The family of this 128-nucleotide RNA from Callorhinchus milii is "Small nucleolar RNA SNORA63". On this family, see Mishra and Eliceiri, Proc Natl Acad Sci U S A 1997: "Three small nucleolar RNAs that are involved in ribosomal RNA precursor processing". Gene Ontology terms of the family: RNA processing and nucleolus. It is annotated as an H/ACA-box small nucleolar RNA. Rfam describes the family as follows. E3 belongs to the H/ACA class of snoRNAs and is involved in the processing of eukaryotic pre-rRNA and has regions of complementarity to 18S rRNA. E3 is encoded in introns in the gene for protein synthesis initiation factor 4AII.
RNA sequence: UUGCAGGUUAAGUUUCAGCUCAGCAGAUAAGUGCUCUGCUGUCGUUCCCCCUGCAGAGAUUGAAUUGUUUCAUACUAUCCCUGACUGCUUUCCUCCUCCAGCUGGCAGGGACGCUUGGGAACGAACAG
Number, nucleotide and partner (000 for none) at each position: 001u000002u000003g054004c053005a052006g051007g050008u000009u000010a000011a000012g000013u000014u000015u000016c041017a040018g039019c038020u000021c000022a035023g034024c033025a000026g000027a000028u000029a000030a000031g000032u000033g024034c023035u022036c000037u000038g019039c018040u017041g016042u000043c000044g000045u000046u000047c000048c000049c000050c007051c006052u005053g004054c003055a000056g000057a000058g000059a000060u000061u000062g000063a000064a000065u000066u000067g000068u000069u000070u000071c000072a000073u000074a000075c000076u000077a000078u000079c000080c109081c108082u107083g106084a000085c104086u000087g102088c101089u000090u000091u000092c000093c000094u000095c000096c000097u000098c000099c000100a000101g088102c087103u000104g085105g000106c083107a082108g081109g080110g000111a000112c000113g000114c000115u000116u000117g000118g000119g000120a000121a000122c000123g000124a000125a000126c000127a000128g000